[Rfam]
Rfam assigns this 138-nucleotide RNA from Oxylabes madagascariensis to the family "Small Cajal body specific RNA 3". By type it is a small Cajal body RNA. The family has 23 seed sequences and 642 matches in Rfam 15.1. scaRNAs are a specific class of small nuclear RNAs which localise to the Cajal bodies and guide the modification of RNA polymerase II transcribed spliceosomal RNAs U1, U2, U4, U5 and U12. It scores 99 bits against the family's covariance model. Its Rfam clan is "SCARNA3 clan". The family's consensus secondary structure was predicted with RNAalifold.
RNA sequence: GCUGGGAUCAGUUGGGACCAGUCAUGGGCAAAAUAAAUAUUUUUUUUUUUCCAGUGUUGCAGUCUUCCUAGAGUAAAGUGGAGGUCUCUGUCUGCUUUAGGACAGCCUACUAAAUCAGAUCGUUCCCCUCCUUACACA
Numbered sequence: 001g002c003u004g005g006g007a008u009c010a011g012u013u014g015g016g017a018c019c020a021g022u023c024a025u026g027g028g029c030a031a032a033a034u035a036a037a038u039a040u041u042u043u044u045u046u047u048u049u050u051c052c053a054g055u056g057u058u059g060c061a062g063u064c065u066u067c068c069u070a071g072a073g074u075a076a077a078g079u080g081g082a083g084g085u086c087u088c089u090g091u092c093u094g095c096u097u098u099a100g101g102a103c104a105g106c107c108u109a110c111u112a113a114a115u116c117a118g119a120u121c122g123u124u125c126c127c128c129u130c131c132u133u134a135c136a137c138a
Stems, first nucleotide, its partner, number of pairs: 004068003009062001011060002025053004035047003080131005088122001090120003094116001096114005